[Rfam]
The record is an 84-nucleotide RNA sequence from Trichonephila clavata, which matches "Vault RNA" in Rfam.
RNA sequence: GCGUAGGCUUAGUCGAGUGGUUACUUCGUUGCUUCGACUUUUAAUCGAUAUACUUAUUGACCACUGACGCUGUCCUACGUUUUG
Numbered sequence: 001g002c003g004u005a006g007g008c009u010u011a012g013u014c015g016a017g018u019g020g021u022u023a024c025u026u027c028g029u030u031g032c033u034u035c036g037a038c039u040u041u042u043a044a045u046c047g048a049u050a051u052a053c054u055u056a057u058u059g060a061c062c063a064c065u066g067a068c069g070c071u072g073u074c075c076u077a078c079g080u081u082u083u084g
Stems, first nucleotide, its partner, number of pairs: 002079006012068004017064004026060003

The match comes from Rfam's covariance-model search (50 bits). The literature on the family includes a 2009 paper in Mol Biol Evol by Stadler et al., "Evolution of Vault RNAs". Lineage of the source: Eukaryota > Eumetazoa > Panarthropoda > Chelicerata > Trichonephila. Pairs were carried over by alignment from the consensus structure, which is taken from published work. Rfam classes the family as a non-coding RNA gene.